RNA sequence: AAGUUCAUUUACUUAAUACUCACAUCUAUCGACACGGUUAGUUGGGUGCUGGUUCUUAAUAAAACUAGUUUCUAGUCGGGAUAGGUGGAGGCGUAAC
Numbered sequence: 001a002a003g004u005u006c007a008u009u010u011a012c013u014u015a016a017u018a019c020u021c022a023c024a025u026c027u028a029u030c031g032a033c034a035c036g037g038u039u040a041g042u043u044g045g046g047u048g049c050u051g052g053u054u055c056u057u058a059a060u061a062a063a064a065c066u067a068g069u070u071u072c073u074a075g076u077c078g079g080g081a082u083a084g085g086u087g088g089a090g091g092c093g094u095a096a097c
Base pairs, nucleotide, nucleotide: 023087024086025085026084027083028082029081030080035078036077037076038075039074040073041072048069049068050067051066052065
A member of the RNA family "t44 RNA" from methanotrophic endosymbiont of Bathymodiolus azoricus, 97 nucleotides long. It is annotated as a small RNA. The base pairs follow the family's consensus structure, which was predicted with LocARNA. From the family's description: This family consists of a number of bacterial RNA genes of between 135 and 170 bases in length. The t44 gene has been identified in several species of enteric bacteria but homologs have also been identified in Pseudomonas and Coxiella species. The t44 gene is found between the map and rpsB genes in all species in the full alignment apart from Shigella flexneri.